[Rfam]
Nucleotides: 077
Base pairs, nucleotide, nucleotide: 012066013065015063016062017061018060019059020058021057024054026052027051028050029049030048031047
Number, partner (000 for none) and nucleotide at each position: 001000c002000c003000u004000u005000a006000c007000a008000g009000u010000c011000c012066c013065u014000g015063c016062a017061u018060u019059g020058u021057a022000c023000a024054c025000a026052c027051u028050g029049u030048g031047c032000g033000u034000a035000u036000u037000u038000g039000u040000g041000a042000a043000c044000a045000g046000a047031g048030c049029a050028c051027a052026g053000c054024g055000c056000a057021u058020a059019c060018a061017a062016u063015g064000u065013g066012g067000a068000u069000g070000c071000u072000g073000u074000g075000a076000u077000a